[Rfam]
RNA sequence: UAAUUUUAUAUCGCAUUCACUCAUAUAAUCGCGAGAAUAUGGCUCGCAAGUCUCUACCGGGUUACCGUAAAUAAUCUGACUAUGAGUGAGCAAUGGAAGAUA
Numbered sequence: 001u002a003a004u005u006u007u008a009u010a011u012c013g014c015a016u017u018c019a020c021u022c023a024u025a026u027a028a029u030c031g032c033g034a035g036a037a038u039a040u041g042g043c044u045c046g047c048a049a050g051u052c053u054c055u056a057c058c059g060g061g062u063u064a065c066c067g068u069a070a071a072u073a074a075u076c077u078g079a080c081u082a083u084g085a086g087u088g089a090g091c092a093a094u095g096g097a098a099g100a101u102a
Base pairs, nucleotide, nucleotide: 018088019087020086021085022084023083024082025081029049031047032046033045034044035043058078059077060076061075062074063073064072
RNA: Purine riboswitch aptamer
Organism: Bacillus oleivorans